[Rfam]
RNA: MIR477 microRNA precursor family
Organism: Ziziphus jujuba
Nucleotides: 092
Stems, first nucleotide, its partner, number of pairs: 003091004009085006017077003023071003027067007
Number, partner (000 for none) and nucleotide at each position: 001000g002000a003091a004090g005089g006088c007000u008000c009085c010084a011083a012082a013081u014080c015000u016000u017077c018076u019075c020000a021000a022000a023071g024070g025069c026000u027067u028066c029065c030064a031063a032062u033061a034000u035000u036000c037000c038000c039000a040000u041000a042000u043000u044000a045000u046000u047000c048000c049000c050000a051000u052000a053000u054000a055000u056000g057000g058000g059000a060000a061033u062032a063031u064030u065029g066028g067027a068000u069025g070024c071023c072000c073000g074000c075019g076018a077017g078000c079000c080014g081013a082012u083011u084010u085009g086000a087000a088006g089005c090004c091003u092000u